[Rfam]
RNA: tRNA
Organism: Spiroplasma helicoides
RNA sequence: GCGUAUAUGGCGAAGUGGUUAACGCUCCGGAUUGUGGUUCCGGCAUUCGAGGGUUCGAUUCCCUUUAUACGCC
Numbered sequence: 001g002c003g004u005a006u007a008u009g010g011c012g013a014a015g016u017g018g019u020u021a022a023c024g025c026u027c028c029g030g031a032u033u034g035u036g037g038u039u040c041c042g043g044c045a046u047u048c049g050a051g052g053g054u055u056c057g058a059u060u061c062c063c064u065u066u067a068u069a070c071g072c073c
Base pairs, nucleotide, nucleotide: 001072002071003070004069005068006067007066010025011024012023027043028042029041030040031039049065050064051063052062053061